[Rfam]
RNA sequence: AUACCUUUCUCGGCAUUUUGGCUAAGAAAGUGUAGUAUCUCUUCUUAUCAGUUUAAUAUCUGAUAUGUGGGCCAUGUGUCCACGGAUAUUAAAUUAAUAUUUUGUGGGGGAGAGCCCAUCACGGUAGCUCGCUACUGGAGCCCUCAUGUGUCGCGGCCCGGUGCACCCCAA
Numbered sequence: 001a002u003a004c005c006u007u008u009c010u011c012g013g014c015a016u017u018u019u020g021g022c023u024a025a026g027a028a029a030g031u032g033u034a035g036u037a038u039c040u041c042u043u044c045u046u047a048u049c050a051g052u053u054u055a056a057u058a059u060c061u062g063a064u065a066u067g068u069g070g071g072c073c074a075u076g077u078g079u080c081c082a083c084g085g086a087u088a089u090u091a092a093a094u095u096a097a098u099a100u101u102u103u104g105u106g107g108g109g110g111a112g113a114g115c116c117c118a119u120c121a122c123g124g125u126a127g128c129u130c131g132c133u134a135c136u137g138g139a140g141c142c143c144u145c146a147u148g149u150g151u152c153g154c155g156g157c158c159c160g161g162u163g164c165a166c167c168c169c170a171a
Base pairs, nucleotide, nucleotide: 008027009026010025012023013022014021046065047064048063049062050061051060067083068082069081070080071079072078110145111144112143114141115140117138124135125134126133127132148164149163150162151161152160153159
Dot-bracket structure: .......(((.(((......))).)))..................((((((........)))))).((((((.....))))))..........................(((.((.(......((((....))))..).)).)))..((((((.....)))))).......
Background: Rfam assigns this 171-nucleotide RNA from Oryza meridionalis to the family "U2 spliceosomal RNA". Rfam 15.1 lists 71,512 matches to the family in 2,642 species. For this family Rfam cites "The uRNA database" (Zwieb, Nucleic Acids Res, 1997). It scores 105 bits against the family's covariance model. NCBI's taxonomy places the organism under Eukaryota, Embryophyta, Magnoliopsida, Oryzoideae, Oryza. U2 is a small nuclear RNA (snRNA) component of the spliceosome (involved in pre-mRNA splicing). Complementary binding between U2 snRNA (in an area lying towards the 5' end but 3' to hairpin I) and the branchpoint sequence (BPS) of the intron results the bulging out of an unpaired adenosine, on the BPS, which initiates a nucleophilic attack at the intronic 5' splice site, thus starting the first of two transesterification reactions that mediate splicing.